[Rfam]
RNA sequence: UUGCAGACUGAAGCGCCAUUUUCAGAGCUAUAAGUGUGAAUGCUAUCAUAGCUCUUUAAAUGGUACUGCAGUAUGCAU
Numbered sequence: 001u002u003g004c005a006g007a008c009u010g011a012a013g014c015g016c017c018a019u020u021u022u023c024a025g026a027g028c029u030a031u032a033a034g035u036g037u038g039a040a041u042g043c044u045a046u047c048a049u050a051g052c053u054c055u056u057u058a059a060a061u062g063g064u065a066c067u068g069c070a071g072u073a074u075g076c077a078u
Stems, first nucleotide, its partner, number of pairs: 002077003007072003012067002015064007024055008
The record is a 78-nucleotide RNA from Nothobranchius furzeri, which matches "mir-458 microRNA precursor family" in Rfam. Taxonomically the source falls in Nothobranchius (Eukaryota, Opisthokonta, Vertebrata, Ovalentaria). On this family, see Glazov et al., Genome Res 2008: "A microRNA catalog of the developing chicken embryo identified by a deep sequencing approach".